[Rfam]
RNA: Bacterial RNase P class A
RNA sequence: GCGGAUGGUCGGAUGAUCGCGGGGCGGGCAACCGUUUCGAGGAAAGUCCGGACUCCAUAAGGCAACGGUGCCGGGUAACGCCCGGCUGGGGUAACCCAAGGGACAGCGCCACAGAGAACAGACCGCCACGGGACGGGUCGGGCUACCGAUACUACCCCGCGGUAAGGGUGAAACGGUGGAGUAAGAGACCACCGCGAGACUGGCAACAGGAUCGGCACGGCAAGCCCCACCGGGAGCAAUGCCAAAUAGGAACCUCGCGUGGGCAACCACAGGCUCGCUUUAGGCCAGAGGUUCGGGUUGGCAGCUAGAGGCGUCAUGGUAACAUGGGGUCGAGAUGAAUGAUCAUCGAACGCAGCAAUGCGGGAACAAAAUCCGGCUUAUAGACCAUCCGCGCAU
Numbered sequence: 001g002c003g004g005a006u007g008g009u010c011g012g013a014u015g016a017u018c019g020c021g022g023g024g025c026g027g028g029c030a031a032c033c034g035u036u037u038c039g040a041g042g043a044a045a046g047u048c049c050g051g052a053c054u055c056c057a058u059a060a061g062g063c064a065a066c067g068g069u070g071c072c073g074g075g076u077a078a079c080g081c082c083c084g085g086c087u088g089g090g091g092u093a094a095c096c097c098a099a100g101g102g103a104c105a106g107c108g109c110c111a112c113a114g115a116g117a118a119c120a121g122a123c124c125g126c127c128a129c130g131g132g133a134c135g136g137g138u139c140g141g142g143c144u145a146c147c148g149a150u151a152c153u154a155c156c157c158c159g160c161g162g163u164a165a166g167g168g169u170g171a172a173a174c175g176g177u178g179g180a181g182u183a184a185g186a187g188a189c190c191a192c193c194g195c196g197a198g199a200c201u202g203g204c205a206a207c208a209g210g211a212u213c214g215g216c217a218c219g220g221c222a223a224g225c226c227c228c229a230c231c232g233g234g235a236g237c238a239a240u241g242c243c244a245a246a247u248a249g250g251a252a253c254c255u256c257g258c259g260u261g262g263g264c265a266a267c268c269a270c271a272g273g274c275u276c277g278c279u280u281u282a283g284g285c286c287a288g289a290g291g292u293u294c295g296g297g298u299u300g301g302c303a304g305c306u307a308g309a310g311g312c313g314u315c316a317u318g319g320u321a322a323c324a325u326g327g328g329g330u331c332g333a334g335a336u337g338a339a340u341g342a343u344c345a346u347c348g349a350a351c352g353c354a355g356c357a358a359u360g361c362g363g364g365a366a367c368a369a370a371a372u373c374c375g376g377c378u379u380a381u382a383g384a385c386c387a388u389c390c391g392c393g394c395a396u
Stems, first nucleotide, its partner, number of pairs: 001392010011381001012347007020039008044379003048376005053236004061281002066232005071085005086100001087098004101227002106225002108221003123167002125163003129159004175193005194216001195214003200209003240303004250294006272286004311330002314327005